[Rfam]
Nucleotides: 076
Stems, first nucleotide, its partner, number of pairs: 001076005
Number, partner (000 for none) and nucleotide at each position: 001076g002075g003074c004073g005072a006000a007000a008000u009000g010000a011000u012000g013000a014000u015000u016000u017000u018000a019000u020000a021000a022000a023000c024000u025000g026000a027000a028000u029000c030000c031000u032000g033000a034000u035000g036000u037000u038000u039000a040000c041000a042000a043000a044000a045000c046000a047000u048000u049000a050000a051000a052000a053000u054000g055000u056000c057000u058000u059000c060000a061000a062000a063000g064000u065000u066000u067000u068000c069000u070000g071000a072005u073004c074003g075002c076001c

This 76-nucleotide RNA from Taxus chinensis belongs to the Rfam family "Small nucleolar RNA R160". It is annotated as a C/D-box small nucleolar RNA. Rfam links the family to the GO terms nucleolus and RNA processing. A reference for the family is Chen et al. (2003), "The high diversity of snoRNAs in plants: identification and comparative study of 120 snoRNA genes from Oryza sativa", Nucleic Acids Res. Rfam 15.1 lists 799 matches to the family in 221 species. The base pairs follow the family's consensus structure. It scores 56 bits against the family's covariance model.